[Rfam]
RNA sequence: AUCUUCGAGGACCUGCAGGACAAGAUUCUUGGUGCCGUCAGUGAGAACUCCAGGAUUGUCCUGCAGAUCAACAAC
Numbered sequence: 001a002u003c004u005u006c007g008a009g010g011a012c013c014u015g016c017a018g019g020a021c022a023a024g025a026u027u028c029u030u031g032g033u034g035c036c037g038u039c040a041g042u043g044a045g046a047a048c049u050c051c052a053g054g055a056u057u058g059u060c061c062u063g064c065a066g067a068u069c070a071a072c073a074a075c
Stems, first nucleotide, its partner, number of pairs: 010069002013066011027055006034048001
The family of this 75-nucleotide RNA sequence from Chlorocebus sabaeus is "mir-492 microRNA precursor family". It scores 95 bits against the family's covariance model. On this family, see Bentwich et al., Nat Genet 2005: "Identification of hundreds of conserved and nonconserved human microRNAs". The base pairs follow the family's consensus structure, which was predicted with RNAalifold. NCBI's taxonomy places the organism under Eukaryota, Boreoeutheria, Simiiformes, Cercopithecidae, Chlorocebus. Rfam links the family to the GO terms RISC complex and miRNA-mediated post-transcriptional gene silencing.